This 85-nucleotide RNA sequence from Chlorocebus sabaeus belongs to the Rfam family "mir-643 microRNA precursor family". The match comes from Rfam's covariance-model search (65 bits). Rfam links the family to the GO terms RISC complex and miRNA-mediated post-transcriptional gene silencing. The organism belongs to Chlorocebus, within Eukaryota. For this family Rfam cites "Identification of novel homologous microRNA genes in the rhesus macaque genome" (Yue et al., BMC Genomics, 2008).

RNA sequence: CUAUUCAGUAUCUACCUGAGCUAGAAUACAAGUGUGUCUGAAGACACCAACUACUUGUAUUCUAGCUCAGGUAGAUAAUGCAUAU
Numbered sequence: 001c002u003a004u005u006c007a008g009u010a011u012c013u014a015c016c017u018g019a020g021c022u023a024g025a026a027u028a029c030a031a032g033u034g035u036g037u038c039u040g041a042a043g044a045c046a047c048c049a050a051c052u053a054c055u056u057g058u059a060u061u062c063u064a065g066c067u068c069a070g071g072u073a074g075a076u077a078a079u080g081c082a083u084a085u
Stems, first nucleotide, its partner, number of pairs: 002084003006080002009077016026060008